[Rfam]
RNA sequence: CCUGUAGUUCGUGGUCAUUGUAGAAGCGUGCUCGUCGCGACCCCUGCCAGCCCUUUUCAGGGCUGCAAUUCUACA
Numbered sequence: 001c002c003u004g005u006a007g008u009u010c011g012u013g014g015u016c017a018u019u020g021u022a023g024a025a026g027c028g029u030g031c032u033c034g035u036c037g038c039g040a041c042c043c044c045u046g047c048c049a050g051c052c053c054u055u056u057u058c059a060g061g062g063c064u065g066c067a068a069u070u071c072u073a074c075a
Stems, first nucleotide, its partner, number of pairs: 011044001013042004019075007026038003048065007
RNA: Mammalian CPEB3 ribozyme